[Rfam]
The family of this 168-nucleotide RNA from Pogona vitticeps is "U1 spliceosomal RNA".
Rfam 15.1 lists 40,184 matches to the family in 1,499 species.
The base pairs follow the family's consensus structure, which is taken from published work.
A reference for the family is Kretzner et al. (1990), "Saccharomyces cerevisiae U1 small nuclear RNA secondary structure contains both universal and yeast-specific domains", Proc Natl Acad Sci U S A.
The family's RNA type in Rfam is spliceosomal small nuclear RNA.
Lineage of the source: Eukaryota > Euteleostomi > Episquamata > Agamidae > Pogona.

RNA sequence: ACUCAUACCUUGCAGGGGAAAUACCAUGUCAUAAAAGUGGUUUUUUUCCAGGGGGAGGCUCAUCUGUUGCACUUUAGGUAUGCUGCUGAUCCCUGUGAUUUCCCCAAAUGUGGGGAGCUCAGCUACAUAAUUUGUGUUAAUGGGGGAUUGUGUUUGUGAUUUCCCUGG
Numbered sequence: 001a002c003u004c005a006u007a008c009c010u011u012g013c014a015g016g017g018g019a020a021a022u023a024c025c026a027u028g029u030c031a032u033a034a035a036a037g038u039g040g041u042u043u044u045u046u047u048c049c050a051g052g053g054g055g056a057g058g059c060u061c062a063u064c065u066g067u068u069g070c071a072c073u074u075u076a077g078g079u080a081u082g083c084u085g086c087u088g089a090u091c092c093c094u095g096u097g098a099u100u101u102c103c104c105c106a107a108a109u110g111u112g113g114g115g116a117g118c119u120c121a122g123c124u125a126c127a128u129a130a131u132u133u134g135u136g137u138u139a140a141u142g143g144g145g146g147a148u149u150g151u152g153u154u155u156g157u158g159a160u161u162u163c164c165c166u167g168g
Stems, first nucleotide, its partner, number of pairs: 012126001014124002016049006023041005050094004055090001057087003061082003064078002096121003099117003103113002141167005147162001151158002
Dot-bracket structure: ...........(.((((((((.(((((.........)))))..))))))((((.(.(((.(((((...........)).)))..)))..))))).((((((.((.......)).))).))).)).)..............(((((.(...((....))...)))))).